[Rfam]
RNA sequence: CCUAGAGGAGCAAGAAGGCAGAGCUUGUUGAGCCGGGCUCUUGCCGAUACUCUCCUCUUAGAGAAAGCGGGAUAGGGAGAGGCGUUCUGGCUUCGAGGAGACGACAGACCUCACUGGACUAUCCCACAAGU
Numbered sequence: 001c002c003u004a005g006a007g008g009a010g011c012a013a014g015a016a017g018g019c020a021g022a023g024c025u026u027g028u029u030g031a032g033c034c035g036g037g038c039u040c041u042u043g044c045c046g047a048u049a050c051u052c053u054c055c056u057c058u059u060a061g062a063g064a065a066a067g068c069g070g071g072a073u074a075g076g077g078a079g080a081g082g083c084g085u086u087c088u089g090g091c092u093u094c095g096a097g098g099a100g101a102c103g104a105c106a107g108a109c110c111u112c113a114c115u116g117g118a119c120u121a122u123c124c125c126a127c128a129a130g131u
Base pairs, nucleotide, nucleotide: 002061003060004058005057006056007055008054009053017045018044019043021040022039023038024037025036026035069124070123071122080115081114082112084110086108087107088106093104094103095102
Rfam assigns this 131-nucleotide RNA from Phrynocephalus forsythii to the family "Small Cajal body specific RNA 4". scaRNAs are a specific class of small nuclear RNAs which localise to the Cajal bodies and guide the modification of RNA polymerase II transcribed spliceosomal RNAs U1, U2, U4, U5 and U12. ACA26 belongs to the H/ACA box class of guide RNAs as it has the predicted hairpin-hinge-hairpin-tail structure, conserved H/ACA-box motifs and is found associated with GAR1. The family's consensus secondary structure was predicted with RNAfold. The family is grouped with related families in Rfam's "SCARNA4 clan".